[Rfam]
RNA sequence: AAGCUGUGAUGAACUGAUCUGUGUACAGAAAGGCGAGCUCUUCGGAGUCAGUCGGUGACGGUAACACAACCCUCUAAGAAGUUCUGAGCUU
Number, nucleotide and partner (000 for none) at each position: 001a091002a090003g089004c088005u000006g000007u000008g000009a000010u000011g000012a000013a000014c000015u000016g000017a000018u000019c000020u000021g000022u000023g000024u000025a000026c000027a000028g000029a000030a000031a000032g000033g000034c000035g000036a000037g000038c000039u000040c000041u000042u000043c000044g000045g000046a000047g000048u000049c000050a000051g000052u000053c000054g000055g000056u000057g000058a000059c000060g000061g000062u000063a000064a000065c000066a000067c000068a000069a000070c000071c000072c000073u000074c000075u000076a000077a000078g000079a000080a000081g000082u000083u000084c000085u000086g000087a000088g004089c003090u002091u001